[Rfam]
RNA sequence: GGAGCGAUACUCAAGAGGCCGAAGAGGGCGCACUGCUAACGCGUUAGACGGUUAACCCCGUGCGAGGGUUCAAAUCCCUCUCGCUCCG
Dot-bracket structure: (((((((..(((...........))).((((.........))))...................(((((.......)))))))))))).
Notes
Rfam assigns this 88-nucleotide RNA sequence from Acholeplasma laidlawii to the family "tRNA". The family's RNA type in Rfam is transfer RNA. Pairs were carried over by alignment from the consensus structure, which is taken from published work. The organism belongs to Acholeplasma, within Bacteria. Rfam's curators write: Transfer RNA (tRNA) molecules are approximately 80 nucleotides in length. The sequence is in the family's curated seed alignment.